[Rfam]
RNA sequence: CAACGGCACCCGACCACAACGGAUCGUCCGGCACGUACCUGCCGGUGGAGGGAUGUUUUC
Numbered sequence: 001c002a003a004c005g006g007c008a009c010c011c012g013a014c015c016a017c018a019a020c021g022g023a024u025c026g027u028c029c030g031g032c033a034c035g036u037a038c039c040u041g042c043c044g045g046u047g048g049a050g051g052g053a054u055g056u057u058u059u060c
Base pairs, nucleotide, nucleotide: 010052011051014048015047016046028045029044030043031042032041033040
RNA: msiK RNA